[Rfam]
Record summary
Shown here is a 74-nucleotide RNA from Callorhinchus milii, a member of the family "mir-129 microRNA precursor family". Rfam 15.1 lists 1,242 matches to the family in 559 species. For this family Rfam cites "Identification of tissue-specific microRNAs from mouse" (Lagos-Quintana et al., Curr Biol, 2002). A search with the family's covariance model found it, with a score of 75 bits.
RNA sequence: UUGGAUCUUUUUGCGGUCUGGGCUUUCUGUGUUUAUCCAAACUAUUCAGAAAGCCCUUACCCAAAAAGCGUUUG
Number, nucleotide and partner (000 for none) at each position: 001u000002u000003g000004g000005a000006u000007c068008u067009u066010u065011u064012u063013g062014c000015g061016g060017u059018c000019u000020g056021g055022g054023c053024u000025u051026u000027c049028u048029g000030u000031g000032u000033u000034u000035a000036u000037c000038c000039a000040a000041a000042c000043u000044a000045u000046u000047c000048a028049g027050a000051a025052a000053g023054c022055c021056c020057u000058u000059a017060c016061c015062c013063a012064a011065a010066a009067a008068g007069c000070g000071u000072u000073u000074g000